Rfam assigns this 324-nucleotide RNA from Cyanoderma ruficeps to the family "Nuclear RNase P".
RNA sequence: GGGAUGCUGAGCCCCAAGGUGAGGCAGGGACAGGGGCUGGCUCUGUCUGUGCCACCUCUGGGAAGGUGUGAGUGGCUUCCCACGGCCAGAGGGCAGGAUUAGGUGGGAUACUGGGGAGGAAUUCCUCCCUGGGAGGUGCUGAGGCCUUGGCACAGGGUGCCCAGAGAAGCUGUGGCUGCCCUUGGAUCCCUGGAAGUGUCCAAGGCCAGGCUGGACAGGGCUUGGAGCACCCUGGGAUAGUGGAAGGUGUCCCUGCCCAUGGCAGGGAGCUGCAAAUGAGAAGAGCUUUCAGGUCCCUUCCCACCCAGACCAUUUUAUGAUUCC
Numbered sequence: 001g002g003g004a005u006g007c008u009g010a011g012c013c014c015c016a017a018g019g020u021g022a023g024g025c026a027g028g029g030a031c032a033g034g035g036g037c038u039g040g041c042u043c044u045g046u047c048u049g050u051g052c053c054a055c056c057u058c059u060g061g062g063a064a065g066g067u068g069u070g071a072g073u074g075g076c077u078u079c080c081c082a083c084g085g086c087c088a089g090a091g092g093g094c095a096g097g098a099u100u101a102g103g104u105g106g107g108a109u110a111c112u113g114g115g116g117a118g119g120a121a122u123u124c125c126u127c128c129c130u131g132g133g134a135g136g137u138g139c140u141g142a143g144g145c146c147u148u149g150g151c152a153c154a155g156g157g158u159g160c161c162c163a164g165a166g167a168a169g170c171u172g173u174g175g176c177u178g179c180c181c182u183u184g185g186a187u188c189c190c191u192g193g194a195a196g197u198g199u200c201c202a203a204g205g206c207c208a209g210g211c212u213g214g215a216c217a218g219g220g221c222u223u224g225g226a227g228c229a230c231c232c233u234g235g236g237a238u239a240g241u242g243g244a245a246g247g248u249g250u251c252c253c254u255g256c257c258c259a260u261g262g263c264a265g266g267g268a269g270c271u272g273c274a275a276a277u278g279a280g281a282a283g284a285g286c287u288u289u290c291a292g293g294u295c296c297c298u299u300c301c302c303a304c305c306c307a308g309a310c311c312a313u314u315u316u317a318u319g320a321u322u323c324c
Stems, first nucleotide, its partner, number of pairs: 001324004008317002012278001021058004031045005078237003124136005137152006153234007175221003280300004285295001
Description:
Pairs were carried over by alignment from the consensus structure, which is taken from published work. It is annotated as a ribozyme. Taxonomically the source falls in Cyanoderma (Eukaryota, Craniata, Aves, Sylvioidea).